The family of this 67-nucleotide RNA from Pleuronectes platessa is "Small nucleolar RNA SNORD24". The literature on the family includes a 1995 paper in Nucleic Acids Res by Qu et al., "U24, a novel intron-encoded small nucleolar RNA with two 12 nt long, phylogenetically conserved complementarities to 28S rRNA". NCBI's taxonomy places the organism under Eukaryota, Opisthokonta, Craniata, Osteoglossocephalai, Pleuronectes. By type it is a C/D-box small nucleolar RNA. Its family is annotated with RNA processing and nucleolus in the Gene Ontology. The match comes from Rfam's covariance-model search (58 bits). The family's consensus secondary structure was predicted with PFOLD.
RNA sequence: UGCAACUGAUGUAAAGAAUAUUUGCUAUCUGAUGUCGUGCUGACCAAUCACCAAGAUCGCUGAUGCA
Numbered sequence: 001u002g003c004a005a006c007u008g009a010u011g012u013a014a015a016g017a018a019u020a021u022u023u024g025c026u027a028u029c030u031g032a033u034g035u036c037g038u039g040c041u042g043a044c045c046a047a048u049c050a051c052c053a054a055g056a057u058c059g060c061u062g063a064u065g066c067a
Stems, first nucleotide, its partner, number of pairs: 001067004